c-di-GMP-I riboswitch aptamer: an 86-nucleotide sequence from Desulfotruncus arcticus. Its family is annotated with cyclic-di-GMP binding in the Gene Ontology. The family's consensus secondary structure is taken from published work. Lineage of the source: Bacteria > Bacillati > Bacillota > Clostridia > Desulfotruncus arcticus. The match comes from Rfam's covariance-model search (76 bits).

[Rfam]
RNA sequence: GCGGAAAAAAGGCAAACUUGUCGAAAGAUAGGGGCGCAAAGCCAUGGGCCUUAGUCGCAUCAGCGAUAUGGCAGCCGGUUGCUAAU
Numbered sequence: 001g002c003g004g005a006a007a008a009a010a011g012g013c014a015a016a017c018u019u020g021u022c023g024a025a026a027g028a029u030a031g032g033g034g035c036g037c038a039a040a041g042c043c044a045u046g047g048g049c050c051u052u053a054g055u056c057g058c059a060u061c062a063g064c065g066a067u068a069u070g071g072c073a074g075c076c077g078g079u080u081g082c083u084a085a086u
Base pairs, nucleotide, nucleotide: 012037013036017032018031019030020029021028022027040080041079042078043077046076047075048072049071050070055066056065057064058063